[Rfam]
RNA sequence: GGUUAAUAGUUAACUGUACCGAAGACAGUAGGUGACGUAAGUCAUAAUUCCUACCGAGGACGUUUAUUGAUGGAAAACAUUCAAUAGUCCCUCUAUGUCUACGGUGGCAUAGGGUUUUUUGUUUUUCAAA
Numbered sequence: 001g002g003u004u005a006a007u008a009g010u011u012a013a014c015u016g017u018a019c020c021g022a023a024g025a026c027a028g029u030a031g032g033u034g035a036c037g038u039a040a041g042u043c044a045u046a047a048u049u050c051c052u053a054c055c056g057a058g059g060a061c062g063u064u065u066a067u068u069g070a071u072g073g074a075a076a077a078c079a080u081u082c083a084a085u086a087g088u089c090c091c092u093c094u095a096u097g098u099c100u101a102c103g104g105u106g107g108c109a110u111a112g113g114g115u116u117u118u119u120u121g122u123u124u125u126u127c128a129a130a
Stems, first nucleotide, its partner, number of pairs: 028054005034043003091114009
Ribosomal protein L10 leader: a 130-nucleotide RNA sequence from Enterococcus alcedinis. It is annotated as a cis-regulatory leader. A search with the family's covariance model found it, with a score of 79 bits. This family is a putative r-protein leader autoregulatory structure found in B. subtilis and other low-GC Gram-positive bacteria. It is located in the 5' untranslated regions of mRNAs encoding ribosomal proteins L10 and L12 (rplJ-rplL). A Rho-independent transcription terminator structure that is probably involved in regulation is included at the 3' end. The base pairs follow the family's consensus structure, which was predicted with CMfinder. Lineage of the source: Bacteria > Bacillota > Bacilli > Lactobacillales > Enterococcus.